[Rfam]
RNA sequence: GGCCUCCCUCUGCGGGGCAAUCGAUCGCAGAGCCCUGUGACCGAUUGCCCCGCAGAGGGAGGCC
Numbered sequence: 001g002g003c004c005u006c007c008c009u010c011u012g013c014g015g016g017g018c019a020a021u022c023g024a025u026c027g028c029a030g031a032g033c034c035c036u037g038u039g040a041c042c043g044a045u046u047g048c049c050c051c052g053c054a055g056a057g058g059g060a061g062g063c064c
Stems, first nucleotide, its partner, number of pairs: 001064023025040006